Background
This 174-nucleotide RNA sequence from Oryza barthii belongs to the Rfam family "MIR807 microRNA precursor family". Gene Ontology terms of the family: RISC complex and miRNA-mediated post-transcriptional gene silencing. The match comes from Rfam's covariance-model search (149 bits). The source organism's lineage runs through Eukaryota, Streptophytina, Spermatophyta, Oryzoideae and Oryza. The family has 30 seed sequences and 1,514 matches in Rfam 15.1.
[Rfam]
RNA sequence: AACUACACUAUCGAUGAAUGGAUUCACGUGAGAUGACGUGGUUGUUCUAUCUAGGAUGAGGACGUGGCAUUAUAUUAAUUUCGUGUGAUGGCUGGUAAUAGGAUGCCAUGUCCUCGUCCUAGAUGAAAUAACCACAUCAUCUCACGGGUGAAUCCAUUCAUUAAUAGUGUGGUU
Numbered sequence: 001a002a003c004u005a006c007a008c009u010a011u012c013g014a015u016g017a018a019u020g021g022a023u024u025c026a027c028g029u030g031a032g033a034u035g036a037c038g039u040g041g042u043u044g045u046u047c048u049a050u051c052u053a054g055g056a057u058g059a060g061g062a063c064g065u066g067g068c069a070u071u072a073u074a075u076u077a078a079u080u081u082c083g084u085g086u087g088a089u090g091g092c093u094g095g096u097a098a099u100a101g102g103a104u105g106c107c108a109u110g111u112c113c114u115c116g117u118c119c120u121a122g123a124u125g126a127a128a129u130a131a132c133c134a135c136a137u138c139a140u141c142u143c144a145c146g147g148g149u150g151a152a153u154c155c156a157u158u159c160a161u162u163a164a165u166a167g168u169g170u171g172g173u174u
Stems, first nucleotide, its partner, number of pairs: 001174007009166003013162003017158003021154007028145004033140004039134008049124002052121002055118002061112003067106005073100005